The family of this 446-nucleotide RNA sequence from Niastella yeongjuensis is "Bacterial RNase P class A". By type it is a ribozyme. The source organism's lineage runs through Bacteria, Pseudomonadati, Bacteroidota, Chitinophagaceae and Niastella. The match comes from Rfam's covariance-model search (228 bits).
RNA sequence: ACUACAAACCGGGCUAUCGCGCCCCGGCUUAGCCGGGGUGAGGAAAGUCUGGACAGCAUAGGGCAAUGUACCGGUGAACAGCCGGGUCUUUCUCUAACUUGUUAGAGGAGGAACAGACAGUGCCACAGAAAAUUACAGCCUUCGACCGCCGAAUCCGCCAGCUGGCGGAAAAGGCGGUUUUCAUCCUGAGCAAUCGGGAGGGUGAUGGUGAAAACGUGGGGUAAGAGCCCACGGCCUGGGCAGGUGACUGCCGGGGCGGGUAAACCUUGCAUGCUGAAAUGCCAUGUAUACCAGCGUUGAAGAGCGGCUCGUUCGAACUCCCGGUAAAACGGGAUACGUUGGGUGGGUAGGCAGAACGAUCCAGUCAGUAAUGGCUGGGCAAGAUAAAUGAUAGCCUCCCGAUCUCGAUCGGGAUACAAAAUCCGGCUUACAGGUUUGUAGUUACU
Number, nucleotide and partner (000 for none) at each position: 001a442002c441003u440004a439005c438006a437007a436008a435009c434010c433011g431012g396013g395014c394015u393016a392017u391018c390019g000020c040021g039022c038023c037024c036025c035026g034027g033028c032029u000030u000031a000032g028033c027034c026035g025036g024037g023038g022039u021040g020041a000042g000043g000044a000045a429046a428047g427048u000049c426050u425051g424052g423053a422054c276055a275056g274057c273058a000059u000060a000061g000062g335063g000064c333065a000066a272067u271068g270069u269070a268071c085072c084073g083074g082075u081076g000077a000078a000079c000080a000081g075082c074083c073084g072085g071086g114087u112088c111089u110090u109091u108092c107093u106094c105095u104096a103097a102098c000099u000100u000101g000102u097103u096104a095105g094106a093107g092108g091109a090110g089111g088112a087113a000114c086115a267116g266117a000118c000119a000120g265121u264122g261123c260124c259125a000126c000127a000128g000129a000130a000131a000132a000133u000134u000135a000136c207137a206138g203139c202140c201141u200142u199143c198144g000145a000146c000147c000148g000149c000150c000151g000152a000153a000154u000155c000156c000157g000158c000159c000160a000161g000162c000163u000164g000165g000166c000167g000168g000169a000170a000171a000172a000173g000174g000175c000176g000177g000178u000179u000180u000181u000182c000183a000184u000185c000186c000187u000188g000189a000190g000191c000192a000193a000194u000195c000196g000197g000198g143199a142200g141201g140202g139203u138204g000205a000206u137207g136208g000209u000210g000211a000212a000213a000214a000215c233216g232217u231218g230219g229220g228221g000222u000223a000224a000225g000226a000227g000228c220229c219230c218231a217232c216233g215234g257235c255236c254237u253238g000239g252240g251241c250242a249243g248244g000245u000246g000247a000248c243249u242250g241251c240252c239253g237254g236255g235256g000257c234258g000259g124260g123261u122262a000263a000264a121265c120266c116267u115268u070269g069270c068271a067272u066273g057274c056275u055276g054277a000278a000279a000280u353281g352282c351283c350284a000285u000286g000287u000288a000289u000290a344291c343292c342293a000294g000295c000296g000297u000298u000299g000300a000301a000302g000303a000304g000305c000306g000307g000308c000309u000310c000311g000312u000313u000314c000315g000316a000317a000318c000319u000320c000321c000322c000323g000324g000325u000326a000327a000328a340329a339330c338331g337332g000333g064334a000335u062336a000337c331338g330339u329340u328341g000342g292343g291344u290345g000346g000347g000348u000349a000350g283351g282352c281353a280354g000355a000356a000357c000358g000359a000360u379361c378362c377363a376364g375365u374366c373367a372368g000369u000370a000371a000372u367373g366374g365375c364376u363377g362378g361379g360380c000381a000382a000383g000384a000385u000386a000387a000388a000389u000390g018391a017392u016393a015394g014395c013396c012397u000398c000399c000400c000401g000402a000403u000404c000405u000406c000407g000408a000409u000410c000411g000412g000413g000414a000415u000416a000417c000418a000419a000420a000421a000422u053423c052424c051425g050426g049427c047428u046429u045430a000431c011432a000433g010434g009435u008436u007437u006438g005439u004440a003441g002442u001443u000444a000445c000446u000